[Rfam]
RNA sequence: CUUCAUUCCGAGGGGGGCAUCGUACGAUGCUGAGAUGGCGUUGAGCCAAGACCCUUGAACCUGAUCCGGAUUAUGCCGGCGUAGGAACGGGAAUUGAGCAGUCU
Numbered sequence: 001c002u003u004c005a006u007u008c009c010g011a012g013g014g015g016g017g018c019a020u021c022g023u024a025c026g027a028u029g030c031u032g033a034g035a036u037g038g039c040g041u042u043g044a045g046c047c048a049a050g051a052c053c054c055u056u057g058a059a060c061c062u063g064a065u066c067c068g069g070a071u072u073a074u075g076c077c078g079g080c081g082u083a084g085g086a087a088c089g090g091g092a093a094u095u096g097a098g099c100a101g102u103c104u
Base pairs, nucleotide, nucleotide: 006092007091008090009089010088011055012054013053014052017030018029019028020027021026037047038046039045060085061084062083063082066079067078068077069076
RNA: TPP riboswitch aptamer (THI element)
Organism: Phyllobacterium sp. YR531